[Rfam]
RNA: U4atac minor spliceosomal RNA
RNA sequence: AAAGUCAACUUAAAGUUUAUUACUGUCCAAUGAGUGCACAGUGAGGGCACUACUGCUAACGCCUACACAAGACACCCACAUCAACUAGAGCUUUGCUUUACUUUGGUGCAAUUUUUGGAAAA
Numbered sequence: 001a002a003a004g005u006c007a008a009c010u011u012a013a014a015g016u017u018u019a020u021u022a023c024u025g026u027c028c029a030a031u032g033a034g035u036g037c038a039c040a041g042u043g044a045g046g047g048c049a050c051u052a053c054u055g056c057u058a059a060c061g062c063c064u065a066c067a068c069a070a071g072a073c074a075c076c077c078a079c080a081u082c083a084a085c086u087a088g089a090g091c092u093u094u095g096c097u098u099u100a101c102u103u104u105g106g107u108g109c110a111a112u113u114u115u116u117g118g119a120a121a122a
Base pairs, nucleotide, nucleotide: 006015018055019054022051024049025048026047027046028045034042035041079108080107081106082105083104086100087099088098089097090096091095